The family of this 66-nucleotide RNA sequence from Mesocricetus auratus is "Small nucleolar RNA SNORD109A". By type it is a C/D-box small nucleolar RNA. The match comes from Rfam's covariance-model search (53 bits). About the family: Humans have two copies of the SNORD109 gene, SNORD109A and SNORD109B. The base pairs follow the family's consensus structure, which was predicted with WAR. Its Rfam clan is "SNORD74 clan".
RNA sequence: GGAUCGAUGAGAACAAGAAGUCUCUGAGGACGGUGAUUGACUUGUAACUAUGCCAAUCUGAGGUCC
Numbered sequence: 001g002g003a004u005c006g007a008u009g010a011g012a013a014c015a016a017g018a019a020g021u022c023u024c025u026g027a028g029g030a031c032g033g034u035g036a037u038u039g040a041c042u043u044g045u046a047a048c049u050a051u052g053c054c055a056a057u058c059u060g061a062g063g064u065c066c
Stems, first nucleotide, its partner, number of pairs: 001066005